The family of this 167-nucleotide sequence from Pontibacillus marinus is "glmS glucosamine-6-phosphate activated ribozyme aptamer". The organism belongs to Pontibacillus marinus, within Bacteria. It is annotated as a riboswitch. It scores 129 bits against the family's covariance model.
[Rfam]
RNA sequence: AUUAUUUCAAAAGCGCCUGGACUAUUUCUUGUAAAGGAAUAGUUGACGAGGAGGAGGUUCAUCGAGUUUUCGGCGGAUGCCUCCCGGUUGUUUACACCUCAACCGAAACAUACUCAUCUAAAACAAAGAGGCGACUCUUUGCACAAAAGAUGCGUAUAAGGUGACAA
Numbered sequence: 001a002u003u004a005u006u007u008c009a010a011a012a013g014c015g016c017c018u019g020g021a022c023u024a025u026u027u028c029u030u031g032u033a034a035a036g037g038a039a040u041a042g043u044u045g046a047c048g049a050g051g052a053g054g055a056g057g058u059u060c061a062u063c064g065a066g067u068u069u070u071c072g073g074c075g076g077a078u079g080c081c082u083c084c085c086g087g088u089u090g091u092u093u094a095c096a097c098c099u100c101a102a103c104c105g106a107a108a109c110a111u112a113c114u115c116a117u118c119u120a121a122a123a124c125a126a127a128g129a130g131g132c133g134a135c136u137c138u139u140u141g142c143a144c145a146a147a148a149g150a151u152g153c154g155u156a157u158a159a160g161g162u163g164a165c166a167a
Stems, first nucleotide, its partner, number of pairs: 020044009053084005062073004085105006110157004115152002124141007
Dot-bracket structure: ...................(((((((((.......)))))))))........(((((....((((....))))......)))))((((((.........))))))....((((.((.......(((((((....))))))).........)).))))..........